[Rfam]
RNA sequence: CCGCCGACACGCCACACCGACUGCAAAGCCGGGCCGGAAAGCCACGGGUCCUGACGAACAAGGGAUAGCCGGGUUGCUCGC
Numbered sequence: 001c002c003g004c005c006g007a008c009a010c011g012c013c014a015c016a017c018c019g020a021c022u023g024c025a026a027a028g029c030c031g032g033g034c035c036g037g038a039a040a041g042c043c044a045c046g047g048g049u050c051c052u053g054a055c056g057a058a059c060a061a062g063g064g065a066u067a068g069c070c071g072g073g074u075u076g077c078u079c080g081c
Base pairs, nucleotide, nucleotide: 012037013036017032018031019030021028022027040075041074042073043072045071046070047069048066049065050064051062052061
Notes:
The family of this 81-nucleotide sequence from Plasticicumulans acidivorans is "c-di-GMP-I riboswitch aptamer". The family's consensus secondary structure is taken from published work. Taxonomically the source falls in Plasticicumulans (Bacteria, Pseudomonadati, Pseudomonadota, Gammaproteobacteria). The match comes from Rfam's covariance-model search (46 bits).